Record summary:
Rfam assigns this 111-nucleotide RNA sequence from Variimorphobacter saccharofermentans to the family "ZMP/ZTP riboswitch aptamer (pfl RNA motif)". Gene Ontology terms of the family: one-carbon metabolic process and regulation of purine nucleotide biosynthetic process. The base pairs follow the family's consensus structure, which is taken from published work. A search with the family's covariance model found it, with a score of 48 bits. Lineage of the source: Bacteria > Bacillati > Clostridia > Lachnospirales > Variimorphobacter.
RNA sequence: AAAGCAUAUCGGAACUGGCGGAUAGUGGGUAACCACAAGGGACCGAUAGCAACGCUUCUCUAUUAUUGUAUAGGAAGCUGGAUUUAAAUGUCGACCGCCUGGGCAAAGCUC
Numbered sequence: 001a002a003a004g005c006a007u008a009u010c011g012g013a014a015c016u017g018g019c020g021g022a023u024a025g026u027g028g029g030u031a032a033c034c035a036c037a038a039g040g041g042a043c044c045g046a047u048a049g050c051a052a053c054g055c056u057u058c059u060c061u062a063u064u065a066u067u068g069u070a071u072a073g074g075a076a077g078c079u080g081g082a083u084u085u086a087a088a089u090g091u092c093g094a095c096c097g098c099c100u101g102g103g104c105a106a107a108g109c110u111c
Stems, first nucleotide, its partner, number of pairs: 004050002007048006015040002017099005025036004089105004